RNA sequence: AUGGUACAGGCCUGUUUUAGAAUUCCUACGCUUUACCUUGGCUAAGCGGGCAAAGCGUCUGAAUUCUGAAACGGGACCUGU
Numbered sequence: 001a002u003g004g005u006a007c008a009g010g011c012c013u014g015u016u017u018u019a020g021a022a023u024u025c026c027u028a029c030g031c032u033u034u035a036c037c038u039u040g041g042c043u044a045a046g047c048g049g050g051c052a053a054a055g056c057g058u059c060u061g062a063a064u065u066c067u068g069a070a071a072c073g074g075g076a077c078c079u080g081u
Base pairs, nucleotide, nucleotide: 011074012073014072015071016070017069018068019067020066021065023063024062025061028058029057030056031055032054033053034052036050037049
Shown here is an 81-nucleotide sequence from Nezara viridula, a member of the family "mir-927 microRNA precursor family". Its family is annotated with miRNA-mediated post-transcriptional gene silencing and RISC complex in the Gene Ontology. For this family Rfam cites "Systematic discovery and characterization of fly microRNAs using 12 Drosophila genomes" (Stark et al., Genome Res, 2007).